[Rfam]
RNA sequence: UACUUAGUAUAAGUAUAUCCUUUGCAAUAUUUGGGAUAUACUUAUACUAAAA
Numbered sequence: 001u002a003c004u005u006a007g008u009a010u011a012a013g014u015a016u017a018u019c020c021u022u023u024g025c026a027a028u029a030u031u032u033g034g035g036a037u038a039u040a041c042u043u044a045u046a047c048u049a050a051a052a
Stems, first nucleotide, its partner, number of pairs: 006048007014040003018036004